RNA sequence: CCAAUUUCGCGAGGGAAGCUGCCGAGCGAAACAAGGUGGCCGCAUAUGUUGCGAGCCAGAUAGGGCAGACCGCGCAGGUCCGUGCAGACCACGGCAUGUCGCAUCGCGUUGCUCGACGUGCAGCCGUCAGGCCGUCGGGCCCGCCGCCCGAAGGCGCCCGUGUGCGCAUGAAAAAAGGCCUUCAUCUGGCGAUGAAGGCCUUUUACU
Dot-bracket structure: .(..((((((..(((....).))..))))))....)((((((((.....)))).))))....((((.....((((....(((((.....)))))...).)))...(((..((((...(..............)...)))).))).))))....((((......)))).....((((((((((((((....))))))))))))))...
RNA: Burkholderia sRNA 11